Rfam assigns this 67-nucleotide RNA from Cnephaeus nilssonii to the family "mir-9256 microRNA precursor family". Rfam links the family to the GO terms RISC complex and miRNA-mediated post-transcriptional gene silencing. The family's consensus secondary structure was predicted with RNAalifold. Rfam 15.1 lists 31,772 matches to the family in 5 species.
[Rfam]
RNA sequence: CAUUACACUGAGUGGCCAGAUUGGUAUGAUCUCUGAAUGCAUAACAAUCUGGCCACUCAGUGUAUAU
Numbered sequence: 001c002a003u004u005a006c007a008c009u010g011a012g013u014g015g016c017c018a019g020a021u022u023g024g025u026a027u028g029a030u031c032u033c034u035g036a037a038u039g040c041a042u043a044a045c046a047a048u049c050u051g052g053c054c055a056c057u058c059a060g061u062g063u064a065u066a067u
Stems, first nucleotide, its partner, number of pairs: 004064014019049005025043004